[Rfam]
RNA sequence: CUCUAGCCCUGAUGGUAGCGGCAUCCUUUUUCUUGCUCCUUUAGCAAGGAAAAGAUAUAGCGGACAGCAGGAUUGGCU
Number, nucleotide and partner (000 for none) at each position: 001c000002u000003c000004u000005a000006g000007c000008c000009c070010u069011g068012a000013u066014g065015g000016u000017a000018g061019c060020g000021g000022c000023a056024u055025c054026c000027u000028u000029u051030u050031u049032c048033u047034u046035g045036c044037u000038c000039c000040u000041u000042u000043a000044g036045c035046a034047a033048g032049g031050a030051a029052a000053a000054g025055a024056u023057a000058u000059a000060g019061c018062g000063g000064a000065c014066a013067g000068c011069a010070g009071g000072a000073u000074u000075g000076g000077c000078u000

Shown here is a 78-nucleotide RNA sequence from Flavobacterium psychrophilum, a member of the family "Flavo-1 RNA". Pairs were carried over by alignment from the consensus structure, which is taken from published work. The family's RNA type in Rfam is small RNA. The sequence is in the family's curated seed alignment. Lineage of the source: Bacteria > Pseudomonadati > Bacteroidota > Flavobacteriaceae > Flavobacterium psychrophilum.